[Rfam]
RNA sequence: CUCUUAUCCUGAGACGGUGAAGGGGACAGGCCCGAUGAAACCCAGCAACCUACUUGCCUAUUUUCGGAAGCAAGGUGCUUAACCUGUUGCAAGGCAAUGAAGCCUUGAACGAUAAGAG
Numbered sequence: 001c002u003c004u005u006a007u008c009c010u011g012a013g014a015c016g017g018u019g020a021a022g023g024g025g026a027c028a029g030g031c032c033c034g035a036u037g038a039a040a041c042c043c044a045g046c047a048a049c050c051u052a053c054u055u056g057c058c059u060a061u062u063u064u065c066g067g068a069a070g071c072a073a074g075g076u077g078c079u080u081a082a083c084c085u086g087u088u089g090c091a092a093g094g095c096a097a098u099g100a101a102g103c104c105u106u107g108a109a110c111g112a113u114a115a116g117a118g
Stems, first nucleotide, its partner, number of pairs: 001118008013043001016042003022033003027089003030084001044079004049075002051072001053070002090107006
A member of the RNA family "SAM riboswitch aptamer (S box leader)" from Bacillus sp. FJAT-50079, 118 nucleotides long. The source organism's lineage runs through Bacteria, Bacillati, Bacilli, Bacillaceae and Bacillus. Pairs were carried over by alignment from the consensus structure, which is taken from published work.